The family of this 84-nucleotide RNA sequence from Lachnospiraceae bacterium 3_1_57FAA_CT1 is "c-di-GMP-I riboswitch aptamer". Taxonomically the source falls in Lachnospiraceae (Bacteria, Bacillati, Bacillota, Clostridia). The family's consensus secondary structure is taken from published work.

RNA sequence: UUUAAUACUUGGCAAACUUGCUGAAAAGCAAGGACGCAAAGCUACAGGGCCUUCCCUCAAAGAGGAUGGCAGCCAGUUGCCUGA
Numbered sequence: 001u002u003u004a005a006u007a008c009u010u011g012g013c014a015a016a017c018u019u020g021c022u023g024a025a026a027a028g029c030a031a032g033g034a035c036g037c038a039a040a041g042c043u044a045c046a047g048g049g050c051c052u053u054c055c056c057u058c059a060a061a062g063a064g065g066a067u068g069g070c071a072g073c074c075a076g077u078u079g080c081c082u083g084a
Stems, first nucleotide, its partner, number of pairs: 012037002017032006040078004047074002049070003056064003